This 79-nucleotide RNA sequence from Gulo gulo belongs to the Rfam family "Small nucleolar RNA U2-19". The family's consensus secondary structure is taken from published work.
RNA sequence: GAUCAAGGACGAAAAUAUCCAGAUCUGAGCAUGAGAGGUCUUCCAGUCUACCUGAUGAAGGAUUUUUGUAGUUCUGAGA
Numbered sequence: 001g002a003u004c005a006a007g008g009a010c011g012a013a014a015a016u017a018u019c020c021a022g023a024u025c026u027g028a029g030c031a032u033g034a035g036a037g038g039u040c041u042u043c044c045a046g047u048c049u050a051c052c053u054g055a056u057g058a059a060g061g062a063u064u065u066u067u068g069u070a071g072u073u074c075u076g077a078g079a
Stems, first nucleotide, its partner, number of pairs: 030057003036049004
It is annotated as a C/D-box small nucleolar RNA. The literature on the family includes a 2004 paper in Curr Biol by Tycowski et al., "Guide RNAs with 5' Caps and Novel Box C/D snoRNA-like Domains for Modification of snRNAs in Metazoa".